Notes
This 110-nucleotide RNA sequence from Triticum urartu belongs to the Rfam family "mir-399 microRNA precursor family". The base pairs follow the family's consensus structure, which was predicted with PFOLD. Rfam links the family to the GO terms RISC complex and miRNA-mediated post-transcriptional gene silencing. It scores 72 bits against the family's covariance model. On this family, see Jones-Rhoades and Bartel, Mol Cell 2004: "Computational Identification of Plant MicroRNAs and Their Targets, Including a Stress-Induced miRNA". NCBI's taxonomy places the organism under Eukaryota, Embryophyta, Mesangiospermae, Pooideae, Triticum.
RNA sequence: AGGUGCAUUGCAGGGCAACUGCUCCAUUGGCAGAGGGAUGGAUGUGGAUUACCCCUCCUACGUUGAUGUUUUAUCUGUCUGCCAAAGGAGAUUUGCCCCGCGAUUCACUG
Numbered sequence: 001a002g003g004u005g006c007a008u009u010g011c012a013g014g015g016c017a018a019c020u021g022c023u024c025c026a027u028u029g030g031c032a033g034a035g036g037g038a039u040g041g042a043u044g045u046g047g048a049u050u051a052c053c054c055c056u057c058c059u060a061c062g063u064u065g066a067u068g069u070u071u072u073a074u075c076u077g078u079c080u081g082c083c084a085a086a087g088g089a090g091a092u093u094u095g096c097c098c099c100g101c102g103a104u105u106c107a108c109u110g
Stems, first nucleotide, its partner, number of pairs: 005106001007104003011100001013098006022090004028084007036076001